[Rfam]
RNA sequence: AGCUUGGCUAGGGUCGCCCCCGAAAAGCGGUCAUCCAGCCGCCUGCCAAGCGCUACAUCUGGAUAGUG
Dot-bracket structure: .(((((((..(((.....))).....((((...[.[.[))))..)))))))............].].]
This 68-nucleotide RNA sequence from Rhizobium sp. Root1212 belongs to the Rfam family "int-alpA RNA".
NCBI's taxonomy places the organism under Bacteria, Pseudomonadota, Hyphomicrobiales, Rhizobiaceae, Rhizobium.
Rfam describes the family as follows. Acidobacteria (1 example), Planctomycetes (1 example), Proteobacteria.
Rfam classes the family as a small RNA.
A search with the family's covariance model found it, with a score of 40 bits.
The base pairs follow the family's consensus structure, which is taken from published work.